[Rfam]
RNA: Small nucleolar RNA R160
Organism: Elaeis guineensis
RNA sequence: AGCAAGAUGAUGAGCCAUUGUGAUCUUAACUUGAUGUGCAUAACACUUUAAUGUCUCCAAAGUAAUCUGAUUUGUU
Numbered sequence: 001a002g003c004a005a006g007a008u009g010a011u012g013a014g015c016c017a018u019u020g021u022g023a024u025c026u027u028a029a030c031u032u033g034a035u036g037u038g039c040a041u042a043a044c045a046c047u048u049u050a051a052u053g054u055c056u057c058c059a060a061a062g063u064a065a066u067c068u069g070a071u072u073u074g075u076u
Base pairs, nucleotide, nucleotide: 001076002075003074004073005072